The record is a 92-nucleotide RNA sequence from Oceaniovalibus guishaninsula, which matches "Rhodo-rpoB RNA" in Rfam. The family's consensus secondary structure is taken from published work. The sequence is in the family's curated seed alignment. Rfam classes the family as a cis-regulatory element. The source organism's lineage runs through Bacteria, Pseudomonadati, Roseobacteraceae, Oceaniovalibus and Oceaniovalibus guishaninsula.
RNA sequence: GCAUCGGGCGGGGCGUUCUGGGAUGCGCCCCUCGGAUGGAUGCGAUCCGACCUCUACAGGGGAUGCCCGCCGUCGACCCAACGGCCGGCAGC
Numbered sequence: 001g002c003a004u005c006g007g008g009c010g011g012g013g014c015g016u017u018c019u020g021g022g023a024u025g026c027g028c029c030c031c032u033c034g035g036a037u038g039g040a041u042g043c044g045a046u047c048c049g050a051c052c053u054c055u056a057c058a059g060g061g062g063a064u065g066c067c068c069g070c071c072g073u074c075g076a077c078c079c080a081a082c083g084g085c086c087g088g089c090a091g092c
Stems, first nucleotide, its partner, number of pairs: 001043005010031007062092001064090003069085004